Shown here is a 98-nucleotide RNA sequence from Moheibacter lacus, a member of the family "Purine riboswitch aptamer".
RNA sequence: UUUUAAAGUUAAAAUUUCACUUGUAUAAACCCGAGAUAAGGUCGGGUGUUUCUACGGAAAACCAUUAAUUUUCCACUACAAAUGAAGUUUUAUGAAUU
Numbered sequence: 001u002u003u004u005a006a007a008g009u010u011a012a013a014a015u016u017u018c019a020c021u022u023g024u025a026u027a028a029a030c031c032c033g034a035g036a037u038a039a040g041g042u043c044g045g046g047u048g049u050u051u052c053u054a055c056g057g058a059a060a061a062c063c064a065u066u067a068a069u070u071u072u073c074c075a076c077u078a079c080a081a082a083u084g085a086a087g088u089u090u091u092a093u094g095a096a097u098u
Base pairs, nucleotide, nucleotide: 018084019083021081022080023079024078025077029047030046031045032044033043034042056074057073058072059071060070061069
Riboswitches are metabolite binding domains within certain messenger RNAs that serve as precision sensors for their corresponding targets. Allosteric rearrangement of mRNA structure is mediated by ligand binding, and this results in modulation of gene expression. A class of riboswitches that selectively recognises guanine and becomes saturated at concentrations as low as 5 nM. In Bacillus subtilis, this mRNA motif is located on at least five separate transcriptional units that together encode 17 genes that are mostly involved in purine transport and purine nucleotide biosynthesis. It has also been shown that some members of this family are specific for adenine instead. Lineage of the source: Bacteria > Bacteroidota > Flavobacteriales > Weeksellaceae > Moheibacter.